[Rfam]
RNA sequence: AAGGGCCGAGAGGAGCUCUCUUCAGUUCAUUCCGAGACUGUUCGAGAGUCAAAACGCAGCUGCUGAUUCGUUAGCUCAAUGGCUCAUCAUCCACAAAAAUUCCCACCGCUAUAACGUCAAAGUUGUGUGAUGGGCUCCUGACCUAUCGAUGCAGGAGCAGUCUUUCGAUCGUCGCUGUCAUGUAUUGGACUGAAGGGAGCUCCUUCUCUAUUUCCU
Numbered sequence: 001a002a003g004g005g006c007c008g009a010g011a012g013g014a015g016c017u018c019u020c021u022u023c024a025g026u027u028c029a030u031u032c033c034g035a036g037a038c039u040g041u042u043c044g045a046g047a048g049u050c051a052a053a054a055c056g057c058a059g060c061u062g063c064u065g066a067u068u069c070g071u072u073a074g075c076u077c078a079a080u081g082g083c084u085c086a087u088c089a090u091c092c093a094c095a096a097a098a099a100u101u102c103c104c105a106c107c108g109c110u111a112u113a114a115c116g117u118c119a120a121a122g123u124u125g126u127g128u129g130a131u132g133g134g135c136u137c138c139u140g141a142c143c144u145a146u147c148g149a150u151g152c153a154g155g156a157g158c159a160g161u162c163u164u165u166c167g168a169u170c171g172u173c174g175c176u177g178u179c180a181u182g183u184a185u186u187g188g189a190c191u192g193a194a195g196g197g198a199g200c201u202c203c204u205u206c207u208c209u210a211u212u213u214c215c216u
Stems, first nucleotide, its partner, number of pairs: 013202008023192007036179001060157002063154003069148002072145003
Dot-bracket structure: ............((((((((..(((((((......(.......................((.(((...((.(((....................................................................))).))...))).)).....................)......)))))))..))))))))..............
RNA: MIR159 microRNA precursor family